Rfam assigns this 156-nucleotide RNA from Egicoccus halophilus to the family "c-di-AMP riboswitch aptamer (ydaO/yuaA leader)".
RNA sequence: UGCCGGGCUACGCCGAACCCGGCCGCGACCGUCCGGGACGGGGGACCCAACCAGGUGGCUGCGGCCACCCCGGGGCGGAUCCGCUCUCGCGAGCGGUAAGGCGACCUUCGCGCCCGAGCCCGUCAGCUAACCCCGUAGGCACACCGGAGGAGCGUC
Dot-bracket structure: ...........(((...(((((..........)))))((((((....(.......................)(((.....((((........))))...(((.........)))....))).........)))))).)))................